RNA: mir-71 microRNA precursor family
Organism: Ascaris suum
RNA sequence: AUGUGGUGAAAGACAUGGGUAGUGAGACGUUACAUUGAGUCGUAUCACUAUUCUGUUUUUCGCCUCGUA
Numbered sequence: 001a002u003g004u005g006g007u008g009a010a011a012g013a014c015a016u017g018g019g020u021a022g023u024g025a026g027a028c029g030u031u032a033c034a035u036u037g038a039g040u041c042g043u044a045u046c047a048c049u050a051u052u053c054u055g056u057u058u059u060u061c062g063c064c065u066c067g068u069a
Stems, first nucleotide, its partner, number of pairs: 008061008017053003021049005027043003